[Rfam]
RNA sequence: CUCUGAAUUGCCGGGUGGUUCGCCUUUGGCACGAAAGCAAGUAAACCAUGCAGAUGUGCCGCACAAGCACUGUAUGCAUGGUUCAGAUUUCAGCGUGCGUGCCAAAGGAGAAUUGCCCUGCGAUUCGCCU
Numbered sequence: 001c002u003c004u005g006a007a008u009u010g011c012c013g014g015g016u017g018g019u020u021c022g023c024c025u026u027u028g029g030c031a032c033g034a035a036a037g038c039a040a041g042u043a044a045a046c047c048a049u050g051c052a053g054a055u056g057u058g059c060c061g062c063a064c065a066a067g068c069a070c071u072g073u074a075u076g077c078a079u080g081g082u083u084c085a086g087a088u089u090u091c092a093g094c095g096u097g098c099g100u101g102c103c104a105a106a107g108g109a110g111a112a113u114u115g116c117c118c119u120g121c122g123a124u125u126c127g128c129c130u
Stems, first nucleotide, its partner, number of pairs: 005126005011120001013118007021110001023108002027104007035096001
RNA: mir-399 microRNA precursor family
Organism: Eragrostis curvula